mir-252 microRNA precursor family: a 91-nucleotide RNA from Tetranychus urticae.
[Rfam]
RNA sequence: UUCCUGUUCUAAGUACUAGCGCCGCAGGAGUGUUUACAUCUCUUUUGGUAUAUUAAAUUCACUCCUGCAGCCUUGGUGCUUACUAUGGGAC
Number, nucleotide and partner (000 for none) at each position: 001u000002u090003c089004c088005u087006g086007u085008u000009c000010u082011a081012a080013g079014u078015a077016c076017u075018a074019g073020c000021g000022c000023c000024g068025c067026a066027g065028g064029a063030g062031u061032g060033u000034u000035u000036a000037c000038a000039u000040c000041u000042c000043u000044u000045u000046u000047g000048g000049u000050a000051u000052a000053u000054u000055a000056a000057a000058u000059u000060c032061a031062c030063u029064c028065c027066u026067g025068c024069a000070g000071c000072c000073u019074u018075g017076g016077u015078g014079c013080u012081u011082a010083c000084u000085a007086u006087g005088g004089g003090a002091c000

About this RNA:
The match comes from Rfam's covariance-model search (62 bits). For this family Rfam cites "Direct sequencing and expression analysis of a large number of miRNAs in Aedes aegypti and a multi-species survey of novel mosquito miRNAs" (Li et al., BMC Genomics, 2009). Its family is annotated with miRNA-mediated post-transcriptional gene silencing and RISC complex in the Gene Ontology.